[Rfam]
Background: This 161-nucleotide RNA from Medicago truncatula belongs to the Rfam family "MIR2619 microRNA precursor family". Rfam links the family to the GO terms RISC complex and miRNA-mediated post-transcriptional gene silencing.

RNA sequence: AAAUUGCCCCUUAAGUUUUGCAACUGUAGCAGUUUUGACCCCCAAUGUCAAAAAUAAAAUAACACGUGACACCUCACUUAGGAUGUCACGUCAGCGUAGACCGAAUCAAAAUUGGUUUUGGGGCCAAAACUGCCACAGGUGCAAAACUUAAGGGGCGGUUU
Numbered sequence: 001a002a003a004u005u006g007c008c009c010c011u012u013a014a015g016u017u018u019u020g021c022a023a024c025u026g027u028a029g030c031a032g033u034u035u036u037g038a039c040c041c042c043c044a045a046u047g048u049c050a051a052a053a054a055u056a057a058a059a060u061a062a063c064a065c066g067u068g069a070c071a072c073c074u075c076a077c078u079u080a081g082g083a084u085g086u087c088a089c090g091u092c093a094g095c096g097u098a099g100a101c102c103g104a105a106u107c108a109a110a111a112u113u114g115g116u117u118u119u120g121g122g123g124c125c126a127a128a129a130c131u132g133c134c135a136c137a138g139g140u141g142c143a144a145a146a147c148u149u150a151a152g153g154g155g156c157g158g159u160u161u
Stems, first nucleotide, its partner, number of pairs: 001161002004158005012150011024138004029133009039123002042121004064091002067088005073082001